Betaproteobacteria toxic small RNA: a 66-nucleotide RNA from Lampropedia hyalina. The source organism's lineage runs through Bacteria, Betaproteobacteria, Burkholderiales, Comamonadaceae and Lampropedia hyalina.

RNA sequence: UGUCUCCUCCACCUUCUCUGACUGGUGGAUUCGCCCCGAAGCAGUCACUGCUUCGGGGCUUUUUUC
Numbered sequence: 001u002g003u004c005u006c007c008u009c010c011a012c013c014u015u016c017u018c019u020g021a022c023u024g025g026u027g028g029a030u031u032c033g034c035c036c037c038g039a040a041g042c043a044g045u046c047a048c049u050g051c052u053u054c055g056g057g058g059c060u061u062u063u064u065u066c
Base pairs, nucleotide, nucleotide: 008029009028010027011026012025013024033059034058035057036056037055038054039053040052

Overexpression in amino aid rich medium attenuates growth, suggesting role in repressing amino acid intake and metabolism.